This 75-nucleotide RNA from Amborella trichopoda belongs to the Rfam family "Plastid-ycf2 5UTR RNA". The family has 204 seed sequences and 3,521 matches in Rfam 15.1. Rfam classes the family as a cis-regulatory element. A search with the family's covariance model found it, with a score of 78 bits. Rfam's curators write: Plastid ycf2 is a non-coding RNA (ncRNA) recognised in plastids. It was found in the prime untranslated region (5UTR) of ycf2 genes, it presents a tRNA-like motif which suggests it can be involved in mRNA maturation, particularly involved in defining the precise 5' end of the transcript. NCBI's taxonomy places the organism under Eukaryota, Tracheophyta, Spermatophyta, Amborellaceae, Amborella.

[Rfam]
RNA sequence: GUGCAUCCAACAGAAAUUGCACCUACGAAUUUGCCAAUUAUGAGUUGGAUGCUUUAACCAUUCAAUUAUGGAUGC
Numbered sequence: 001g002u003g004c005a006u007c008c009a010a011c012a013g014a015a016a017u018u019g020c021a022c023c024u025a026c027g028a029a030u031u032u033g034c035c036a037a038u039u040a041u042g043a044g045u046u047g048g049a050u051g052c053u054u055u056a057a058c059c060a061u062u063c064a065a066u067u068a069u070g071g072a073u074g075c
Stems, first nucleotide, its partner, number of pairs: 003075006012024002040069003044066008